[Rfam]
RNA sequence: GUUGUUUUCGGGUGGAUGACUCCGCAAUUUCAAUACGUGACCCGGUCCGAGAAAUUGCACAGUAUCCAUCUGCGAUCCGCU
Numbered sequence: 001g002u003u004g005u006u007u008u009c010g011g012g013u014g015g016a017u018g019a020c021u022c023c024g025c026a027a028u029u030u031c032a033a034u035a036c037g038u039g040a041c042c043c044g045g046u047c048c049g050a051g052a053a054a055u056u057g058c059a060c061a062g063u064a065u066c067c068a069u070c071u072g073c074g075a076u077c078c079g080c081u
Base pairs, nucleotide, nucleotide: 009072010071011070012069013068014067015066016065017064019063020062024058025057026056027055028054029053030052031051
The record is an 81-nucleotide RNA sequence from Betta splendens, which matches "mir-363 microRNA precursor family" in Rfam. Its Rfam clan is "mir-19 clan". The match comes from Rfam's covariance-model search (64 bits). The family's consensus secondary structure was predicted with RNAalifold. Taxonomically the source falls in Betta (Eukaryota, Euteleostomi, Clupeocephala, Anabantiformes).